[Rfam]
RNA sequence: CCUGGUACUGUAAACAUCCCCGACUGGAAGCUGUGAUGUACAUGUUCUAGCUUUCAGUAGGGUGUUUGCUGCUCCAUU
Numbered sequence: 001c002c003u004g005g006u007a008c009u010g011u012a013a014a015c016a017u018c019c020c021c022g023a024c025u026g027g028a029a030g031c032u033g034u035g036a037u038g039u040a041c042a043u044g045u046u047c048u049a050g051c052u053u054u055c056a057g058u059a060g061g062g063u064g065u066u067u068g069c070u071g072c073u074c075c076a077u078u
Stems, first nucleotide, its partner, number of pairs: 003076003008071001010069010023058010
Rfam assigns this 78-nucleotide RNA from Oncorhynchus tshawytscha to the family "mir-30 microRNA precursor family". The family's consensus secondary structure was predicted with PFOLD. Rfam links the family to the GO terms gene silencing by miRNA and RISC complex. About the family: This family consists of the mammalian microRNA (miRNA) precursor mir-30a. Animal miRNAs are transcribed as ~70nt precursors and subsequently processed by the Dicer enzyme to give a ~22nt product. In this case the mature sequence comes from both the 3' (miR-30) and 5' (mir-97-6) arms of the precursor. The extents of the hairpin precursors are not generally known and are estimated based on hairpin prediction. The products are thought to have regulatory roles through complementarity to mRNA. The involvement of Dicer in miRNA processing suggests a relationship with the phenomenon of RNA interference. miRNAs are numbered based on the sequence of the mature RNA. On this family, see Lagos-Quintana et al., Science 2001: "Identification of novel genes coding for small expressed RNAs". The organism belongs to Oncorhynchus, within Eukaryota.